[Rfam]
RNA sequence: GGGCUAGUAAUGGUUUCGACGGGGUACGUGAAGUUGGAGAAGCGAGCCGUAUGCAAUGCGUUAAAUGGCACAAUUAAAAUUAAACGCUGAAGAUAAUAAUUUAGCAUUAGCUGCCUAGUUGCAGCAGUCUGACUUAGUGCACCUACACAUUAAGACCCAGGCUUCGAACAUGUAGGAAACGACAUAGGUUAAGCUUUGCACUUAUGGGCGUAUUAUGAAGCUACUGAAGUUGUUAGGGUGUUAGUCCUCGAACAACGGAGGGAAUGUUAAAGGACUUACUACACUCGUAGAAGUACAAUGAAUCGUAUUUCGGACAUGGGUUCGACUCCCAUCUAGUCCACUU
Numbered sequence: 001g002g003g004c005u006a007g008u009a010a011u012g013g014u015u016u017c018g019a020c021g022g023g024g025u026a027c028g029u030g031a032a033g034u035u036g037g038a039g040a041a042g043c044g045a046g047c048c049g050u051a052u053g054c055a056a057u058g059c060g061u062u063a064a065a066u067g068g069c070a071c072a073a074u075u076a077a078a079a080u081u082a083a084a085c086g087c088u089g090a091a092g093a094u095a096a097u098a099a100u101u102u103a104g105c106a107u108u109a110g111c112u113g114c115c116u117a118g119u120u121g122c123a124g125c126a127g128u129c130u131g132a133c134u135u136a137g138u139g140c141a142c143c144u145a146c147a148c149a150u151u152a153a154g155a156c157c158c159a160g161g162c163u164u165c166g167a168a169c170a171u172g173u174a175g176g177a178a179a180c181g182a183c184a185u186a187g188g189u190u191a192a193g194c195u196u197u198g199c200a201c202u203u204a205u206g207g208g209c210g211u212a213u214u215a216u217g218a219a220g221c222u223a224c225u226g227a228a229g230u231u232g233u234u235a236g237g238g239u240g241u242u243a244g245u246c247c248u249c250g251a252a253c254a255a256c257g258g259a260g261g262g263a264a265u266g267u268u269a270a271a272g273g274a275c276u277u278a279c280u281a282c283a284c285u286c287g288u289a290g291a292a293g294u295a296c297a298a299u300g301a302a303u304c305g306u307a308u309u310u311c312g313g314a315c316a317u318g319g320g321u322u323c324g325a326c327u328c329c330c331a332u333c334u335a336g337u338c339c340a341c342u343u
Base pairs, nucleotide, nucleotide: 001339002338003337004336005335006334007333020312021311022310023309024308025307026306027305028304033299034298035297036296038294043287044286045285046284048060049059050058051057052056110125111124112123113122114121126163127162128161129160130159131158133154134153135152136151137150138149139148142176143175144174145173146172147171183206184205185204186203187202188201192222193221194220195219196218197217224261225260229256230255231254232253233252236249237248238247240279241278243276245273246272316332317331318330319329320328

transfer-messenger RNA: a 343-nucleotide RNA sequence from Lachnobacterium bovis. The source organism's lineage runs through Bacteria, Bacillati, Clostridia, Lachnospirales and Lachnobacterium bovis. Its family is annotated with RNA catabolic process in the Gene Ontology. Pairs were carried over by alignment from the consensus structure, which is taken from published work. The match comes from Rfam's covariance-model search (131 bits).